[Rfam]
A member of the RNA family "tRNA" from Campylobacter pinnipediorum, 74 nucleotides long. The source organism's lineage runs through Bacteria, Pseudomonadati, Campylobacterales, Campylobacteraceae and Campylobacter pinnipediorum. Its family is annotated with triplet codon-amino acid adaptor activity in the Gene Ontology. About the family: Transfer RNA (tRNA) molecules are approximately 80 nucleotides in length.
RNA sequence: GCAGCGGUAGUUCAGCUGGUUAGAAUGCCGCCCUGUCACGGCGGAGGUCGCGGGUUCGAGUCCCGUCCGCUGCG
Numbered sequence: 001g002c003a004g005c006g007g008u009a010g011u012u013c014a015g016c017u018g019g020u021u022a023g024a025a026u027g028c029c030g031c032c033c034u035g036u037c038a039c040g041g042c043g044g045a046g047g048u049c050g051c052g053g054g055u056u057c058g059a060g061u062c063c064c065g066u067c068c069g070c071u072g073c074g
Base pairs, nucleotide, nucleotide: 001073002072003071004070005069006068007067010026011025012024013023028044029043030042031041032040050066051065052064053063054062